Nucleotides: 141
Base pairs, nucleotide, nucleotide: 001139002138003137004136005135006134007133008132009131010130011129013127014126015125016124017123018122019121020120021119022118023117024116029111031109032108033107034106035105036104037103038102039101040100041099043097044096045095046094049091050090052088053087054086
Number, partner (000 for none) and nucleotide at each position: 001139u002138u003137a004136g005135g006134u007133u008132a009131a010130u011129c012000a013127c014126a015125u016124a017123a018122a019121a020120u021119a022118u023117g024116u025000c026000a027000u028000c029111u030000c031109c032108u033107u034106u035105a036104a037103u038102u039101a040100u041099a042000c043097g044096c045095a046094u047000c048000a049091a050090c051000c052088u053087c054086a055000a056000g057000u058000a059000a060000a061000a062000a063000a064000u065000g066000u067000c068000u069000g070000g071000g072000g073000u074000u075000u076000u077000a078000u079000g080000a081000c082000u083000u084000a085000u086054u087053g088052a089000c090050g091049u092000c093000a094046a095045u096044g097043c098000a099041u100040a101039u102038a103037a104036u105035u106034a107033a108032a109031g110000a111029a112000a113000a114000u115000a116024a117023c118022a119021u120020a121019u122018u123017u124016u125015a126014u127013g128000c129011g130010g131009u132008u133007a134006a135005c136004u137003u138002a139001a140000c141000u
This 141-nucleotide sequence from Anisodus acutangulus belongs to the Rfam family "MIR7993 microRNA precursor family". Rfam links the family to the GO terms RISC complex and miRNA-mediated post-transcriptional gene silencing. Lineage of the source: Eukaryota > Streptophytina > Mesangiospermae > lamiids > Anisodus.